The family of this 108-nucleotide RNA sequence from Variovorax sp. PBL-E5 is "Glycine riboswitch aptamer". The organism belongs to Variovorax, within Bacteria. Gene Ontology term of the family: glycine biosynthetic process.

RNA sequence: UCAAUCGCCGACUGGAGAGCCGCCGCGGCACGCGGCGCUCCGAAGGAGCAAGCCCGCUGCGGGUCGCACGCGGGUGAAUCUCUCAGGUACAAGGACAGGGGAGCGGCA
Numbered sequence: 001u002c003a004a005u006c007g008c009c010g011a012c013u014g015g016a017g018a019g020c021c022g023c024c025g026c027g028g029c030a031c032g033c034g035g036c037g038c039u040c041c042g043a044a045g046g047a048g049c050a051a052g053c054c055c056g057c058u059g060c061g062g063g064u065c066g067c068a069c070g071c072g073g074g075u076g077a078a079u080c081u082c083u084c085a086g087g088u089a090c091a092a093g094g095a096c097a098g099g100g101g102a103g104c105g106g107c108a
Base pairs, nucleotide, nucleotide: 006103008101009100012098013097014096021037022036023035024034040087041086042084043083046082047081048080052075053074054073055072056071057070
Notes:
A search with the family's covariance model found it, with a score of 51 bits.